This 89-nucleotide RNA from Sulfuritortus calidifontis belongs to the Rfam family "Burkholderia RNA 7 (anti-hemB)".
Rfam classes the family as a small RNA.
Pairs were carried over by alignment from the consensus structure, which is taken from published work.
Rfam describes the family as follows. This RNA motif was identified by computational search in b-proteobacteria Burkholderia. Co-purified with Hfq, expression confirmed by Northern blot.
Gene Ontology terms of the family: protein binding and bacterial biofilm matrix.
RNA sequence: UUCCGCUAUCUCCUCCCUGAGCGGGUGCCUUGGCGCAAAGCUAAGGCACUUGGUGCCCGACCUUCUCCCCUUGGGUCGGGCAUUUUUUU
Numbered sequence: 001u002u003c004c005g006c007u008a009u010c011u012c013c014u015c016c017c018u019g020a021g022c023g024g025g026u027g028c029c030u031u032g033g034c035g036c037a038a039a040g041c042u043a044a045g046g047c048a049c050u051u052g053g054u055g056c057c058c059g060a061c062c063u064u065c066u067c068c069c070c071u072u073g074g075g076u077c078g079g080g081c082a083u084u085u086u087u088u089u
Base pairs, nucleotide, nucleotide: 002025003024004023005022006021007020027047028046029045030044031043032042033041055081056080057079058078059077060076061075062074